Rfam assigns this 146-nucleotide RNA from Vitis rotundifolia to the family "MIR390 microRNA precursor family". The family has 16 seed sequences and 649 matches in Rfam 15.1. Gene Ontology terms of the family: miRNA-mediated post-transcriptional gene silencing and RISC complex.

[Rfam]
RNA sequence: UGGGAGAAUCUGUUAAGCUCAGGAGGGAUAGCGCCAUGAGCCAUGAUGAAAAUGAUUGUUGAGUUGAAAAUUUUUUCUAACUUGUUUCUUGGGUCAUCAGUUGGUGUGUGUGGCGCUAUCUAUCCUGAGUUUCACGGGUUCUUCUU
Numbered sequence: 001u002g003g004g005a006g007a008a009u010c011u012g013u014u015a016a017g018c019u020c021a022g023g024a025g026g027g028a029u030a031g032c033g034c035c036a037u038g039a040g041c042c043a044u045g046a047u048g049a050a051a052a053u054g055a056u057u058g059u060u061g062a063g064u065u066g067a068a069a070a071u072u073u074u075u076u077c078u079a080a081c082u083u084g085u086u087u088c089u090u091g092g093g094u095c096a097u098c099a100g101u102u103g104g105u106g107u108g109u110g111u112g113g114c115g116c117u118a119u120c121u122a123u124c125c126u127g128a129g130u131u132u133c134a135c136g137g138g139u140u141c142u143u144c145u146u
Base pairs, nucleotide, nucleotide: 010137016131017130018129019128020127021126022125023124024123026121027120028119029118030117031116032115033114034113035112036111037110038109